[Rfam]
The record is a 226-nucleotide RNA from Apostasia shenzhenica, which matches "RNase MRP" in Rfam. Rfam classes the family as a ribozyme. The organism belongs to Apostasia, within Eukaryota. The base pairs follow the family's consensus structure, which is taken from published work.
RNA sequence: UUGUUGGGUGAUGAAGUGAUUCGGUUUACCGGGCGAAAGUCUCCGGGCCCACUCGCAGAAAUGCGUGCCCAUAAACGGGUGAUGUUAAGGAACGAAGAUGAGGCGAAGACAAGUGUGGAGCCAGUUAAGGCCUCGUUCCUUACGAGUAUUGGCCGUACCUCACAGUUAUUCACUUGGGCCUGAUCUGUAUCGGGCCUAACAGAACGGGGAUUACACUCAUCCAACA
Numbered sequence: 001u002u003g004u005u006g007g008g009u010g011a012u013g014a015a016g017u018g019a020u021u022c023g024g025u026u027u028a029c030c031g032g033g034c035g036a037a038a039g040u041c042u043c044c045g046g047g048c049c050c051a052c053u054c055g056c057a058g059a060a061a062u063g064c065g066u067g068c069c070c071a072u073a074a075a076c077g078g079g080u081g082a083u084g085u086u087a088a089g090g091a092a093c094g095a096a097g098a099u100g101a102g103g104c105g106a107a108g109a110c111a112a113g114u115g116u117g118g119a120g121c122c123a124g125u126u127a128a129g130g131c132c133u134c135g136u137u138c139c140u141u142a143c144g145a146g147u148a149u150u151g152g153c154c155g156u157a158c159c160u161c162a163c164a165g166u167u168a169u170u171c172a173c174u175u176g177g178g179c180c181u182g183a184u185c186u187g188u189a190u191c192g193g194g195c196c197u198a199a200c201a202g203a204a205c206g207g208g209g210a211u212u213a214c215a216c217u218c219a220u221c222c223a224a225c226a
Stems, first nucleotide, its partner, number of pairs: 002226010014175006021033001022031003037212002041209004054065004066081005085145001086142008101133004119126002177196006